About this RNA
This 87-nucleotide RNA from Limnohabitans radicicola belongs to the Rfam family "Burkholderia RNA 7 (anti-hemB)". The literature on the family includes a 2017 paper in Sci Rep by Sass et al., "Identification of small RNAs abundant in Burkholderia cenocepacia biofilms reveal putative regulators with a potential role in carbon and iron metabolism". NCBI's taxonomy places the organism under Bacteria, Pseudomonadati, Betaproteobacteria, Comamonadaceae, Limnohabitans. The family's RNA type in Rfam is small RNA. The family's consensus secondary structure is taken from published work. This RNA motif was identified by computational search in b-proteobacteria Burkholderia. Co-purified with Hfq, expression confirmed by Northern blot.
[Rfam]
RNA sequence: UCCCCGCUUUACCUCCCUGAGCGGGCGCCUGGAUGCGUCACAGCAAAAAGGCUUCCCACCCUCGGCCUCUGGUCGGGGGUUUUUUUU
Numbered sequence: 001u002c003c004c005c006g007c008u009u010u011a012c013c014u015c016c017c018u019g020a021g022c023g024g025g026c027g028c029c030u031g032g033a034u035g036c037g038u039c040a041c042a043g044c045a046a047a048a049a050g051g052c053u054u055c056c057c058a059c060c061c062u063c064g065g066c067c068u069c070u071g072g073u074c075g076g077g078g079g080u081u082u083u084u085u086u087u
Base pairs, nucleotide, nucleotide: 003025004024005023006022007021008020027052028051029050030049034045035044036043059079060078061077062076063075064074065073066072